This 113-nucleotide RNA sequence from Neobacillus mesonae belongs to the Rfam family "TPP riboswitch aptamer (THI element)".
RNA sequence: ACGCUCUACUAGGGGAGUCCGAUGGCUUGGACUGAGAGAAGAAUGCUUAAUUUCUUUGACCCUUUGAACCUGAUCUGGAUCAUACCAGCGUAGGGAAGUAGUUAUCAAUGGCG
Numbered sequence: 001a002c003g004c005u006c007u008a009c010u011a012g013g014g015g016a017g018u019c020c021g022a023u024g025g026c027u028u029g030g031a032c033u034g035a036g037a038g039a040a041g042a043a044u045g046c047u048u049a050a051u052u053u054c055u056u057u058g059a060c061c062c063u064u065u066g067a068a069c070c071u072g073a074u075c076u077g078g079a080u081c082a083u084a085c086c087a088g089c090g091u092a093g094g095g096a097a098g099u100a101g102u103u104a105u106c107a108a109u110g111g112c113g
Stems, first nucleotide, its partner, number of pairs: 006101005011063004016057001017032005039056005069094004075088004

Its family is annotated with thiamine pyrophosphate binding in the Gene Ontology. A search with the family's covariance model found it, with a score of 86 bits.